MIR5387 microRNA precursor family: a 91-nucleotide RNA sequence from Sorghum bicolor. Rfam 15.1 lists 1,029 matches to the family in 9 species. A search with the family's covariance model found it, with a score of 73 bits. The source organism's lineage runs through Eukaryota, Tracheophyta, Euphyllophyta, Andropogoneae and Sorghum.
RNA sequence: CUGUAACACGAACCGGUGCUAAAGGGUCCCUGCCCCGACAGCACCUGUCAGCCAUUGGGCAGGACCCUUUAACACCAGUUCGUGUUACAAA
Numbered sequence: 001c002u003g004u005a006a007c008a009c010g011a012a013c014c015g016g017u018g019c020u021a022a023a024g025g026g027u028c029c030c031u032g033c034c035c036c037g038a039c040a041g042c043a044c045c046u047g048u049c050a051g052c053c054a055u056u057g058g059g060c061a062g063g064a065c066c067c068u069u070u071a072a073c074a075c076c077a078g079u080u081c082g083u084g085u086u087a088c089a090a091a
Stems, first nucleotide, its partner, number of pairs: 003088011015076004020071008029063002034059003038055001045051002